[Rfam]
RNA sequence: AGAGGUACAAUGAGGAUCCAAUUUGUAGUGGUAUUCAUGAGAUUUAAAUAUCGAUGAUAUCCAAUCAUUACUUCACUAGACCUUUUCAUUCUGAGUGCAAC
Number, nucleotide and partner (000 for none) at each position: 001a000002g000003a000004g000005g098006u097007a096008c095009a000010a089011u088012g087013a086014g085015g000016a000017u000018c000019c000020a000021a000022u000023u000024u000025g000026u000027a000028g000029u000030g000031g000032u000033a000034u000035u000036c000037a000038u000039g000040a000041g000042a065043u064044u063045u000046a000047a000048a000049u000050a000051u000052c000053g000054a000055u000056g000057a000058u000059a000060u000061c000062c000063a044064a043065u042066c000067a000068u000069u000070a000071c000072u000073u000074c000075a000076c000077u000078a000079g000080a000081c000082c000083u000084u000085u014086u013087c012088a011089u010090u000091c000092u000093g000094a000095g008096u007097g006098c005099a000100a000101c000
RNA: Small nucleolar RNA Z162